[Rfam]
RNA sequence: GAGAGGCGGUGGGCGGCUAACCUGCGGUUAGCAUACAAGCUGACCGAAAGGAGGAAAGUCCCCCCACCGUAAGAGGCGGACUCCCGCAAGGGAGUAUGCCGAGAGGCAUGGCAACGGCACAGAAACGAUACCCGCUUGGGGAAAUGCGAUGAAGCAAAUGCAGAGGUCACCCAAGCGGGAUGAAACGUUCCGACCCCGCCGGUGCAAGCUUAUGCGCUCAGACUGAUGCCGCCGGAACAGAAGGGGGCUUACCACCGCUACUC
Number, nucleotide and partner (000 for none) at each position: 001g263002a262003g261004a000005g259006g258007c257008g256009g255010u254011g253012g233013g232014c231015g230016g229017c228018u000019a000020a000021c051022c050023u049024g000025c000026g000027g000028u000029u000030a000031g000032c000033a000034u000035a000036c000037a000038a000039g000040c000041u000042g000043a000044c000045c000046g000047a000048a000049a023050g022051g021052a000053g000054g000055a000056a250057a249058g248059u000060c247061c246062c245063c244064c243065c204066a203067c202068c201069g000070u000071a000072a000073g000074a000075g200076g199077c198078g197079g196080a095081c094082u093083c092084c091085c000086g000087c000088a000089a000090g000091g084092g083093a082094g081095u080096a109097u108098g107099c106100c105101g000102a000103g000104a000105g100106g099107c098108a097109u096110g195111g194112c000113a000114a000115c192116g191117g190118c000119a000120c000121a000122g000123a000124a000125a000126c000127g000128a000129u000130a000131c179132c178133c177134g176135c175136u174137u173138g172139g171140g170141g000142a000143a000144a000145u000146g000147c000148g000149a000150u000151g000152a000153a000154g161155c160156a000157a000158a000159u000160g155161c154162a000163g000164a000165g000166g000167u000168c000169a000170c140171c139172c138173a137174a136175g135176c134177g133178g132179g131180a000181u000182g000183a000184a000185a000186c000187g000188u000189u000190c117191c116192g115193a000194c111195c110196c079197c078198g077199c076200c075201g068202g067203u066204g065205c000206a000207a000208g215209c214210u000211u000212a000213u000214g209215c208216g000217c000218u000219c000220a000221g000222a000223c000224u000225g000226a000227u000228g017229c016230c015231g014232c013233c012234g000235g000236a000237a000238c000239a000240g000241a000242a000243g064244g063245g062246g061247g060248c058249u057250u056251a000252c000253c011254a010255c009256c008257g007258c006259u005260a000261c003262u002263c001

The record is a 263-nucleotide sequence from Acidilobus sp. SCGC AC-742_E15, which matches "Archaeal RNase P" in Rfam. Rfam's curators write: Ribonuclease P (RNase P) is a ubiquitous endoribonuclease, found in archaea, bacteria and eukarya as well as chloroplasts and mitochondria. Its best characterised activity is the generation of mature 5'-ends of tRNAs by cleaving the 5'-leader elements of precursor-tRNAs. Cellular RNase Ps are ribonucleoproteins. For this family Rfam cites "The Ribonuclease P Database" (Brown, Nucleic Acids Res, 1999). It scores 176 bits against the family's covariance model. Rfam links the family to the GO terms multimeric ribonuclease P complex, ribonuclease P activity and tRNA processing. By type it is a ribozyme. The family is grouped with related families in Rfam's "RNaseP clan".